[Rfam]
RNA sequence: CCGCCGUUCCAGGGGAGUCCCGGCAAAGGGGCUGAGAGGCUGUUGUCCGUCAUUGGUUUCGACCAAGGGGCGGGCGCUACAGCGACCCUUCGAACCUGAUCCGGGUCAUGCCGGCGAAGGGACGGAUACUAUCAGCACC
Numbered sequence: 001c002c003g004c005c006g007u008u009c010c011a012g013g014g015g016a017g018u019c020c021c022g023g024c025a026a027a028g029g030g031g032c033u034g035a036g037a038g039g040c041u042g043u044u045g046u047c048c049g050u051c052a053u054u055g056g057u058u059u060c061g062a063c064c065a066a067g068g069g070g071c072g073g074g075c076g077c078u079a080c081a082g083c084g085a086c087c088c089u090u091c092g093a094a095c096c097u098g099a100u101c102c103g104g105g106u107c108a109u110g111c112c113g114g115c116g117a118a119g120g121g122a123c124g125g126a127u128a129c130u131a132u133c134a135g136c137a138c139c
Stems, first nucleotide, its partner, number of pairs: 006127004011089004017032005039083005095120003101114004
Shown here is a 139-nucleotide RNA from Rhodovarius crocodyli, a member of the family "TPP riboswitch aptamer (THI element)". Pairs were carried over by alignment from the consensus structure, which is taken from published work.